[Rfam]
RNA: MIR2617 microRNA precursor family
Organism: Medicago truncatula
RNA sequence: AUGUAGUGUGACAUGCCCAUUUGGAUUUAUUACUCUGAUGUGUGUUUAUUUCAUUUAAAUAAAUUAUAUUUGGGAAUGGGGUGUUACACCACA
Numbered sequence: 001a002u003g004u005a006g007u008g009u010g011a012c013a014u015g016c017c018c019a020u021u022u023g024g025a026u027u028u029a030u031u032a033c034u035c036u037g038a039u040g041u042g043u044g045u046u047u048a049u050u051u052c053a054u055u056u057a058a059a060u061a062a063a064u065u066a067u068a069u070u071u072g073g074g075a076a077u078g079g080g081g082u083g084u085u086a087c088a089c090c091a092c093a
Stems, first nucleotide, its partner, number of pairs: 002093003006089009016080006